[Rfam]
RNA sequence: GACUCAUCAAGAGAGGUGGAGGGACCGGCCCGCAGAUACCUCGGCAACCGCAGCCUGCUGCAGGUGCCAAAUCCGGCAGAACCGUUGGCUGAUUCUGGAAGAUGAGAG
Number, nucleotide and partner (000 for none) at each position: 001g000002a000003c106004u105005c104006a103007u102008c101009a000010a000011g000012a000013g042014a041015g040016g039017u038018g000019g000020a000021g031022g030023g029024a000025c076026c075027g074028g073029c023030c022031c021032g000033c000034a000035g000036a000037u000038a017039c016040c015041u014042c013043g068044g067045c066046a065047a000048c064049c063050g061051c060052a059053g058054c000055c000056u000057g000058c053059u052060g051061c050062a000063g049064g048065u046066g045067c044068c043069a000070a000071a000072u100073c028074c027075g026076g025077c097078a096079g095080a094081a093082c000083c000084g000085u000086u000087g000088g000089c000090u000091g000092a000093u081094u080095c079096u078097g077098g000099a000100a072101g008102a007103u006104g005105a004106g003107a000108g000
Description:
Shown here is a 108-nucleotide RNA sequence from Pelolinea submarina, a member of the family "SAM riboswitch aptamer (S box leader)". The base pairs follow the family's consensus structure, which is taken from published work. Lineage of the source: Bacteria > Bacillati > Chloroflexota > Anaerolineaceae > Pelolinea. The match comes from Rfam's covariance-model search (83 bits).